The record is a 111-nucleotide sequence from Musa balbisiana, which matches "Plastid-psbA-1 3UTR RNA" in Rfam. Plastid psbA-1 is a non-coding RNA (ncRNA) present in plastids. It is annotated as a cis-regulatory element. Taxonomically the source falls in Musa (Eukaryota, Spermatophyta, Petrosaviidae, commelinids). The match comes from Rfam's covariance-model search (70 bits).

RNA sequence: UCGAAGUGUCAUCUACACAUGGAUAAAUUUUUGUCUUAGUGAGACGAUCGUUGAAACAAAGUAGGCAUACCCUCAUUCUUGCUUUAGCAAGACAUGGGGUAUUGCUACUUU
Numbered sequence: 001u002c003g004a005a006g007u008g009u010c011a012u013c014u015a016c017a018c019a020u021g022g023a024u025a026a027a028u029u030u031u032u033g034u035c036u037u038a039g040u041g042a043g044a045c046g047a048u049c050g051u052u053g054a055a056a057c058a059a060a061g062u063a064g065g066c067a068u069a070c071c072c073u074c075a076u077u078c079u080u081g082c083u084u085u086a087g088c089a090a091g092a093c094a095u096g097g098g099g100u101a102u103u104g105c106u107a108c109u110u111u
Stems, first nucleotide, its partner, number of pairs: 009022004058111007067102004072097002077092004